[Rfam]
Source information: This 142-nucleotide RNA from Plesiomonas shigelloides belongs to the Rfam family "CpoB/ybgF ICR thermometer". The base pairs follow the family's consensus structure. Rfam's curators write: Imprinting control region from upstream of cpoB/ybgF (tol/pal system protein). Gene Ontology terms of the family: regulation of translation and response to temperature stimulus.

RNA sequence: CCAAAUCUCUAUCGUUUCUUACGGUAAAGAGAAGCCAGCAGUUCUGGGCCAUACUGAAGACGCGUACGCUAAAAACCGUCGCGCAGUACUGGUUUACUAAUAAGGAUAUCGCAUGAACCGUAACUACAGACCGAUUAUCAGU
Numbered sequence: 001c002c003a004a005a006u007c008u009c010u011a012u013c014g015u016u017u018c019u020u021a022c023g024g025u026a027a028a029g030a031g032a033a034g035c036c037a038g039c040a041g042u043u044c045u046g047g048g049c050c051a052u053a054c055u056g057a058a059g060a061c062g063c064g065u066a067c068g069c070u071a072a073a074a075a076c077c078g079u080c081g082c083g084c085a086g087u088a089c090u091g092g093u094u095u096a097c098u099a100a101u102a103a104g105g106a107u108a109u110c111g112c113a114u115g116a117a118c119c120g121u122a123a124c125u126a127c128a129g130a131c132c133g134a135u136u137a138u139c140a141g142u
Stems, first nucleotide, its partner, number of pairs: 001047003007041002014035007054141002057138001059136001065130001068127001075121002078118001079116003083112002086109003090105001